[Rfam]
RNA sequence: UCCCUGGGGCUGGUAAAAAGGAACCAGAUCAACUUGAACUGGAUUUGGUCCCCUUCAACCAGCUGCAGCGG
Numbered sequence: 001u002c003c004c005u006g007g008g009g010c011u012g013g014u015a016a017a018a019a020g021g022a023a024c025c026a027g028a029u030c031a032a033c034u035u036g037a038a039c040u041g042g043a044u045u046u047g048g049u050c051c052c053c054u055u056c057a058a059c060c061a062g063c064u065g066c067a068g069c070g071g
Stems, first nucleotide, its partner, number of pairs: 004068003008064007017055002020051003024048007
Rfam assigns this 71-nucleotide RNA sequence from Erithacus rubecula to the family "mir-133 microRNA precursor family". About the family: mir-133 was first experimentally characterised in mouse and homologues have since been discovered in several other species. The mature sequence is excised from the 3' arm of the hairpin. Gene Ontology terms of the family: miRNA-mediated post-transcriptional gene silencing and RISC complex. It scores 68 bits against the family's covariance model.